The record is a 304-nucleotide sequence from Digitaria exilis, which matches "Plant signal recognition particle RNA" in Rfam. Its family is annotated with SRP-dependent cotranslational protein targeting to membrane, signal sequence recognition and signal recognition particle, endoplasmic reticulum targeting in the Gene Ontology. For this family Rfam cites "Towards the structure of the mammalian signal recognition particle" (Wild et al., Curr Opin Struct Biol, 2002). The family's consensus secondary structure is taken from published work. Its Rfam clan is "SRP clan". The source organism's lineage runs through Eukaryota, Viridiplantae, Streptophyta, Euphyllophyta and Digitaria.
RNA sequence: GCCGAGCCAAGUAGCGAUGGCUUGUCACCCGAGCGGGGGCAUUAAGGUGGUGUGGAUGCCAAUUGUGGCGCUUGGGCCUGGGCCUGUGGUUGCACUCUGCGGCCCGCCCGUUCCAAGUUGCGUAGUGGGCUGUUGGGCGUCUUGGUGAAAGCCUCGGCGUCUCGGCACCUAGAGCGGUGGGCAAUGCGUGAGGCUGGCUUCAGAGCAGCGAAUACCACCCGCUUCCAACGGUGGGAGGAUAACGGGCCGCUGCACCGCAGGCCCGCUUAGGCCCAUGCGCCCUCUCUGGCAGACCACCAUCUUU
Numbered sequence: 001g002c003c004g005a006g007c008c009a010a011g012u013a014g015c016g017a018u019g020g021c022u023u024g025u026c027a028c029c030c031g032a033g034c035g036g037g038g039g040c041a042u043u044a045a046g047g048u049g050g051u052g053u054g055g056a057u058g059c060c061a062a063u064u065g066u067g068g069c070g071c072u073u074g075g076g077c078c079u080g081g082g083c084c085u086g087u088g089g090u091u092g093c094a095c096u097c098u099g100c101g102g103c104c105c106g107c108c109c110g111u112u113c114c115a116a117g118u119u120g121c122g123u124a125g126u127g128g129g130c131u132g133u134u135g136g137g138c139g140u141c142u143u144g145g146u147g148a149a150a151g152c153c154u155c156g157g158c159g160u161c162u163c164g165g166c167a168c169c170u171a172g173a174g175c176g177g178u179g180g181g182c183a184a185u186g187c188g189u190g191a192g193g194c195u196g197g198c199u200u201c202a203g204a205g206c207a208g209c210g211a212a213u214a215c216c217a218c219c220c221g222c223u224u225c226c227a228a229c230g231g232u233g234g235g236a237g238g239a240u241a242a243c244g245g246g247c248c249g250c251u252g253c254a255c256c257g258c259a260g261g262c263c264c265g266c267u268u269a270g271g272c273c274c275a276u277g278c279g280c281c282c283u284c285u286c287u288g289g290c291a292g293a294c295c296a297c298c299a300u301c302u303u304u
Base pairs, nucleotide, nucleotide: 001040002039003038004023005022006021007020008019009018028037029036030035044303045302046301047300048299049298050297051296052295054294057291058290059289060288061287062285065282067280069279070278071277073275074274075273076272077271078270080264081263082262083261084260085259086258087257088256091254092253093252094251099250100249101248102247103246104245105244106243108238109237111236112235113234114233115232117229118228119227120226122225124223125222126221127168129166130165131164132163135162136161137160138159139158140157141156144153145152146151169174176219177218178217179216180215185212187210188209189208194203195202196201